About this RNA: Shown here is a 50-nucleotide sequence from Bradyrhizobium sp. LMTR 3, a member of the family "Guanidine-II riboswitch aptamer (mini-ykkC)". The base pairs follow the family's consensus structure, which is taken from published work. Simpler in structure and has fewer highly conserved nucleotide positions than the ykkC-yxkD leader. Despite this each of its two stem-loop structures directly bind free guanidine. Therefore, mini-ykkC RNA motif represents a distinct class of guanidine-sensing RNAs. Its crystal structure was also determined. Lineage of the source: Bacteria > Pseudomonadati > Alphaproteobacteria > Hyphomicrobiales > Bradyrhizobium. The literature on the family includes a 2007 paper in Nucleic Acids Res by Weinberg et al., "Identification of 22 candidate structured RNAs in bacteria using the CMfinder comparative genomics pipeline". It scores 35 bits against the family's covariance model.

RNA sequence: GCGGAAGGACGGCCUUCCAAUUUUGCAGCUCAUCCGCGGGGACGACCCUG
Dot-bracket structure: ..((((((....))))))..................(((((....)))))